[Rfam]
RNA: Small nucleolar RNA snR32
Organism: Ophiocordyceps camponoti-saundersi
RNA sequence: AUCACCAUCUUUACUGUGAGUUGUCGAAAUUUUGCCAGCUUUCGCGUCGUUUCGACGGCGUGCAUCGACAUUCUGGCUACUCUUCAUGGGCCUGAAUGUUUUCGCUCUGGCAUACAUGUAAACACCACUCGUUGCUGGGCACCUGACCUGGAGAUGUCGUUCUGAACAUCGCGGACAGGCCGGGAAUCAGCUGUAGUGACAUUU
Numbered sequence: 001a002u003c004a005c006c007a008u009c010u011u012u013a014c015u016g017u018g019a020g021u022u023g024u025c026g027a028a029a030u031u032u033u034g035c036c037a038g039c040u041u042u043c044g045c046g047u048c049g050u051u052u053c054g055a056c057g058g059c060g061u062g063c064a065u066c067g068a069c070a071u072u073c074u075g076g077c078u079a080c081u082c083u084u085c086a087u088g089g090g091c092c093u094g095a096a097u098g099u100u101u102u103c104g105c106u107c108u109g110g111c112a113u114a115c116a117u118g119u120a121a122a123c124a125c126c127a128c129u130c131g132u133u134g135c136u137g138g139g140c141a142c143c144u145g146a147c148c149u150g151g152a153g154a155u156g157u158c159g160u161u162c163u164g165a166a167c168a169u170c171g172c173g174g175a176c177a178g179g180c181c182g183g184g185a186a187u188c189a190g191c192u193g194u195a196g197u198g199a200c201a202u203u204u
Stems, first nucleotide, its partner, number of pairs: 003118002011110003016105003024068004069098005075092003127197002130193002142184002147179004153170005